[Rfam]
RNA sequence: CGCCCUUAGAGUUUCAUUCUGGCUCAGGACGAACGCUGGCGGCGUGCUUAACACAUGCAAGUCGAACGAAAAGACGGAAAGAGCUUGCUCUUUUCAGAAUUGAGUGGCAAACGGGUGAGUAACACGUAAACAACCUGCCUUCAGGAUGGGGACAACAGACGGAAACGACUGCUAAUACCGAAUAAGUUUCAAGGGUCGCAUGAUCCAUGGAAGAAAAGGUGGCCUCUACCUGUAAGCUAUCGCCUGAAGAGGGGUUUGCGUCUGAUUAGCUGGUUGGAGGGGUAACGGCCCACCAAGGCGACGAUCAGUAGCCGGUCUGAGAGGAUGAACGGCCACACUGGAACUGAGACACGGUCCAGACUUCUACGGGAGGCAGCAGUGGGGAAUCUUCCGCAAUGGGCGAAAGCCUGACGGAGCAACGCCGCGUGAGUGAUGACGGCCUUCGGGUUGUAAAACUCUGUGAUCCGGGACGAAAAGGCAGAGUGCGAAGAACAAACUGCAUUGACGGUACCGGAAAAGCAAGCCACGGCUAACUACGUGCCAGCAGCCGCGGUAAUACGUAGGUGGCAAGCGUUGUCCGGAAUUAUUG
Numbered sequence: 001c002g003c004c005c006u007u008a009g010a011g012u013u014u015c016a017u018u019c020u021g022g023c024u025c026a027g028g029a030c031g032a033a034c035g036c037u038g039g040c041g042g043c044g045u046g047c048u049u050a051a052c053a054c055a056u057g058c059a060a061g062u063c064g065a066a067c068g069a070a071a072a073g074a075c076g077g078a079a080a081g082a083g084c085u086u087g088c089u090c091u092u093u094u095c096a097g098a099a100u101u102g103a104g105u106g107g108c109a110a111a112c113g114g115g116u117g118a119g120u121a122a123c124a125c126g127u128a129a130a131c132a133a134c135c136u137g138c139c140u141u142c143a144g145g146a147u148g149g150g151g152a153c154a155a156c157a158g159a160c161g162g163a164a165a166c167g168a169c170u171g172c173u174a175a176u177a178c179c180g181a182a183u184a185a186g187u188u189u190c191a192a193g194g195g196u197c198g199c200a201u202g203a204u205c206c207a208u209g210g211a212a213g214a215a216a217a218g219g220u221g222g223c224c225u226c227u228a229c230c231u232g233u234a235a236g237c238u239a240u241c242g243c244c245u246g247a248a249g250a251g252g253g254g255u256u257u258g259c260g261u262c263u264g265a266u267u268a269g270c271u272g273g274u275u276g277g278a279g280g281g282g283u284a285a286c287g288g289c290c291c292a293c294c295a296a297g298g299c300g301a302c303g304a305u306c307a308g309u310a311g312c313c314g315g316u317c318u319g320a321g322a323g324g325a326u327g328a329a330c331g332g333c334c335a336c337a338c339u340g341g342a343a344c345u346g347a348g349a350c351a352c353g354g355u356c357c358a359g360a361c362u363u364c365u366a367c368g369g370g371a372g373g374c375a376g377c378a379g380u381g382g383g384g385a386a387u388c389u390u391c392c393g394c395a396a397u398g399g400g401c402g403a404a405a406g407c408c409u410g411a412c413g414g415a416g417c418a419a420c421g422c423c424g425c426g427u428g429a430g431u432g433a434u435g436a437c438g439g440c441c442u443u444c445g446g447g448u449u450g451u452a453a454a455a456c457u458c459u460g461u462g463a464u465c466c467g468g469g470a471c472g473a474a475a476a477g478g479c480a481g482a483g484u485g486c487g488a489a490g491a492a493c494a495a496a497c498u499g500c501a502u503u504g505a506c507g508g509u510a511c512c513g514g515a516a517a518a519g520c521a522a523g524c525c526a527c528g529g530c531u532a533a534c535u536a537c538g539u540g541c542c543a544g545c546a547g548c549c550g551c552g553g554u555a556a557u558a559c560g561u562a563g564g565u566g567g568c569a570a571g572c573g574u575u576g577u578c579c580g581g582a583a584u585u586a587u588u589g
Stems, first nucleotide, its partner, number of pairs: 009025005027579004032575006039425006045418002047383001052381003056378003061108003066105002069101002077094007115336003124261008134253002139249007147181001149179002156171003160167002187212005193206001195204003218241006262308003269299003274296004279291003311333004315326004338359005361372004389415001391414003397410005428458004438449004462520001464515005472506001478500003523568005534563005544551002
RNA: Bacterial small subunit ribosomal RNA, nucleotides 1 to 589